[Rfam]
This 53-nucleotide RNA from Centropogon nigricans belongs to the Rfam family "Plastid-psbA-3 3UTR RNA". Rfam classes the family as a cis-regulatory element. NCBI's taxonomy places the organism under Eukaryota, asterids, campanulids, Campanulaceae, Centropogon. The family's consensus secondary structure was predicted with LocARNA. For this family Rfam cites "Retrograde signaling in plants: A critical review focusing on the GUN pathway and beyond" (Richter et al., Plant Commun, 2023). About the family: Plastid psbA-3 is a non-coding RNA (ncRNA) present in plastids.
RNA sequence: AAAAGUAGCAAUAACUUCCCUCUUGUUCUAGCAAGAGGGCGUUAUUGUUCCCC
Numbered sequence: 001a002a003a004a005g006u007a008g009c010a011a012u013a014a015c016u017u018c019c020c021u022c023u024u025g026u027u028c029u030a031g032c033a034a035g036a037g038g039g040c041g042u043u044a045u046u047g048u049u050c051c052c053c
Base pairs, nucleotide, nucleotide: 005051007049008048009047010046011045012044013043014042015041020037021036022035023034024033025032